[Rfam]
The record is a 95-nucleotide RNA sequence from Legionella drancourtii, which matches "RAGATH-13 RNA" in Rfam. The literature on the family includes a 2015 paper in Nat Chem Biol by Weinberg et al., "New classes of self-cleaving ribozymes revealed by comparative genomics analysis". Lineage of the source: Bacteria > Pseudomonadota > Legionellaceae > Legionella > Legionella drancourtii. By type it is a ribozyme.
RNA sequence: ACUGAUUUGCCCCUGAACUGAGCCUUGAGGCUUCAUGCCUGGUACCGCACUCUUGCAGGCCGCUCUACCAACACUAAACCAAUAUCAGGGCAAAU
Numbered sequence: 001a002c003u004g005a006u007u008u009g010c011c012c013c014u015g016a017a018c019u020g021a022g023c024c025u026u027g028a029g030g031c032u033u034c035a036u037g038c039c040u041g042g043u044a045c046c047g048c049a050c051u052c053u054u055g056c057a058g059g060c061c062g063c064u065c066u067a068c069c070a071a072c073a074c075u076a077a078a079c080c081a082a083u084a085u086c087a088g089g090g091c092a093a094a095u
Base pairs, nucleotide, nucleotide: 005095006094007093008092009091010090011089012088019067020065021064022063023062028040029039030038031037041061042060043059045058